Glycine riboswitch aptamer: a 93-nucleotide RNA from Anaerosolibacter carboniphilus. NCBI's taxonomy places the organism under Bacteria, Clostridia, Peptostreptococcales, Thermotaleaceae, Anaerosolibacter. A search with the family's covariance model found it, with a score of 55 bits.
RNA sequence: UGACACAACCCUGGAGAGAUCCAAAGAACGGGACAUCGAAGGAGUAACUUACGGCGUAAGGAAGCUUUCAGAUAAAAGGACAGGGAGUAAAGC
Number, nucleotide and partner (000 for none) at each position: 001u000002g000003a000004c000005a000006c000007a000008a000009c085010c084011c083012u082013g081014g000015a000016g000017a000018g000019a000020u033021c032022c031023a000024a000025a000026g000027a000028a000029c000030g000031g022032g021033a020034c000035a073036u072037c071038g069039a068040a000041g000042g067043a066044g065045u000046a000047a000048c060049u059050u058051a057052c000053g000054g000055c000056g000057u051058a050059a049060g048061g000062a000063a000064g000065c044066u043067u042068u039069c038070a000071g037072a036073u035074a000075a000076a000077a000078g000079g000080a000081c013082a012083g011084g010085g009086a000087g000088u000089a000090a000091a000092g000093c000